This 99-nucleotide RNA from Hyphomicrobium denitrificans belongs to the Rfam family "Glycine riboswitch aptamer". Pairs were carried over by alignment from the consensus structure. The organism belongs to Hyphomicrobium denitrificans, within Bacteria. It scores 63 bits against the family's covariance model. Rfam links the family to the GO term glycine biosynthetic process.
RNA sequence: CAAUGGAAUGCGGAAGAGUCCGGACAGCUUAAAGCUUGAGCCGGCGCCGAAGGAGCAACCGCCCCGGAAACUCUCAGGCAAACAAACCGUAUUCCGACG
Numbered sequence: 001c002a003a004u005g006g007a008a009u010g011c012g013g014a015a016g017a018g019u020c021c022g023g024a025c026a027g028c029u030u031a032a033a034g035c036u037u038g039a040g041c042c043g044g045c046g047c048c049g050a051a052g053g054a055g056c057a058a059c060c061g062c063c064c065c066g067g068a069a070a071c072u073c074u075c076a077g078g079c080a081a082a083c084a085a086a087c088c089g090u091a092u093u094c095c096g097a098c099g
Stems, first nucleotide, its partner, number of pairs: 006094008020044004046079003049075002053073003059067002